[Rfam]
RNA: chrB-b RNA
RNA sequence: AGGGGUUUGGCAGGCGCCCCUUUAGACGUGGGUCGUCCAAGCUCUGC
Dot-bracket structure: ((((((...[[[[[.))))))...((((.....)))).....]]]]]